[Rfam]
RNA sequence: AGACGUGAAAAGCAAACUAUUCAAAAGAUUAGGACGCAAAGCCGACAGGUCUAAAAUCAAAUUGGUUAUGAUGGCUGGGUUGCCUCU
Numbered sequence: 001a002g003a004c005g006u007g008a009a010a011a012g013c014a015a016a017c018u019a020u021u022c023a024a025a026a027g028a029u030u031a032g033g034a035c036g037c038a039a040a041g042c043c044g045a046c047a048g049g050u051c052u053a054a055a056a057u058c059a060a061a062u063u064g065g066u067u068a069u070g071a072u073g074g075c076u077g078g079g080u081u082g083c084c085u086c087u
Stems, first nucleotide, its partner, number of pairs: 012037002017032003021028002040081004046077003049072003056066004
Dot-bracket structure: ...........((...(((.((....)).)))...))..((((..((((((....((((...))))...)))..)))))))......

The record is an 87-nucleotide sequence from Domibacillus mangrovi, which matches "c-di-GMP-I riboswitch aptamer" in Rfam.
From the family's description: GEMM was predicted in a large-scale screen for bacterial structured RNA regulatory elements.